The family of this 78-nucleotide RNA from Artemisia annua is "Small nucleolar RNA Z155". The source organism's lineage runs through Eukaryota, Euphyllophyta, Gunneridae, Asterales and Artemisia. The family has 8 seed sequences and 429 matches in Rfam 15.1. On this family, see Chen et al., Nucleic Acids Res 2003: "The high diversity of snoRNAs in plants: identification and comparative study of 120 snoRNA genes from Oryza sativa".
[Rfam]
RNA sequence: UUUUGAGGUGAUGAGAAAGUUGUCGGAAUAAUAUAUGUCGAUCGAAAAAACUUCCAGACUACAAUUAUCUGAUCAAAU
Numbered sequence: 001u002u003u004u005g006a007g008g009u010g011a012u013g014a015g016a017a018a019g020u021u022g023u024c025g026g027a028a029u030a031a032u033a034u035a036u037g038u039c040g041a042u043c044g045a046a047a048a049a050a051c052u053u054c055c056a057g058a059c060u061a062c063a064a065u066u067a068u069c070u071g072a073u074c075a076a077a078u
Stems, first nucleotide, its partner, number of pairs: 002077005